The record is a 143-nucleotide RNA sequence from Mus musculus, which matches "Vault RNA" in Rfam. The family's RNA type in Rfam is non-coding RNA gene.

RNA sequence: GGGCCAGCUUUAGCUCAGUGGUUACUUUGACGGUAUUUCAGUUCAUUACCAGCUAUUCAUAGCAGGUUCAAAUAACACAACCAACCACUUGCCUAACCCAUGAGUGUUUGGUUCGAGACCCGUGGGUGCUCCCUGGCCCUUUA
Numbered sequence: 001g002g003g004c005c006a007g008c009u010u011u012a013g014c015u016c017a018g019u020g021g022u023u024a025c026u027u028u029g030a031c032g033g034u035a036u037u038u039c040a041g042u043u044c045a046u047u048a049c050c051a052g053c054u055a056u057u058c059a060u061a062g063c064a065g066g067u068u069c070a071a072a073u074a075a076c077a078c079a080a081c082c083a084a085c086c087a088c089u090u091g092c093c094u095a096a097c098c099c100a101u102g103a104g105u106g107u108u109u110g111g112u113u114c115g116a117g118a119c120c121c122g123u124g125g126g127u128g129c130u131c132c133c134u135g136g137c138c139c140u141u142u143a
Stems, first nucleotide, its partner, number of pairs: 002138006013127004018123004026117005
The organism belongs to Mus, within Eukaryota. The base pairs follow the family's consensus structure, which is taken from published work. From the family's description: This family of RNAs are found as part of the enigmatic vault ribonucleoprotein complex. It scores 58 bits against the family's covariance model.